This 119-nucleotide sequence from Oryza meyeriana belongs to the Rfam family "Small nucleolar RNA Z107/R87". By type it is a C/D-box small nucleolar RNA. For this family Rfam cites "The high diversity of snoRNAs in plants: identification and comparative study of 120 snoRNA genes from Oryza sativa" (Chen et al., Nucleic Acids Res, 2003). The source organism's lineage runs through Eukaryota, Embryophyta, Petrosaviidae, Oryzoideae and Oryza meyeriana. The family has 9 seed sequences and 783 matches in Rfam 15.1.
RNA sequence: GAUGGCAGUGACAACUCAAUAAUAUUCAAGCUCAACGGACUAAAUCACAGGUCUUUCUCUCUGGAUCUACUCCUCAGAGAUUGAUUUCUAUGCCGAUUUUCCCGCUGAACCGAGCCAUC
Numbered sequence: 001g002a003u004g005g006c007a008g009u010g011a012c013a014a015c016u017c018a019a020u021a022a023u024a025u026u027c028a029a030g031c032u033c034a035a036c037g038g039a040c041u042a043a044a045u046c047a048c049a050g051g052u053c054u055u056u057c058u059c060u061c062u063g064g065a066u067c068u069a070c071u072c073c074u075c076a077g078a079g080a081u082u083g084a085u086u087u088c089u090a091u092g093c094c095g096a097u098u099u100u101c102c103c104g105c106u107g108a109a110c111c112g113a114g115c116c117a118u119c
Stems, first nucleotide, its partner, number of pairs: 001119006